[Rfam]
RNA sequence: GGUUUCCAUUGGUGCAAAUCCAAUCACCUCAAGUUGAGAUGAGAAGCAAUUCCCCAUUGGUAGUAAAUAGUUAGUCAUUAAGCAGGGAAAUAAUA
Dot-bracket structure: ........((((.......))))............................(((.((.(.((((.....)))).).))......)))........